RNA sequence: AUAAAAAAAUUAAAUAGACCUCAUAUAAUUGUGAUGAUAUGGUUCACAAGUCUCUAGUGUCAGCCGAUAACUGACAACUAUGAGGGAAGUAAAUUAGCUG
Numbered sequence: 001a002u003a004a005a006a007a008a009a010u011u012a013a014a015u016a017g018a019c020c021u022c023a024u025a026u027a028a029u030u031g032u033g034a035u036g037a038u039a040u041g042g043u044u045c046a047c048a049a050g051u052c053u054c055u056a057g058u059g060u061c062a063g064c065c066g067a068u069a070a071c072u073g074a075c076a077a078c079u080a081u082g083a084g085g086g087a088a089g090u091a092a093a094u095u096a097g098c099u100g
Stems, first nucleotide, its partner, number of pairs: 019085007029049006058076006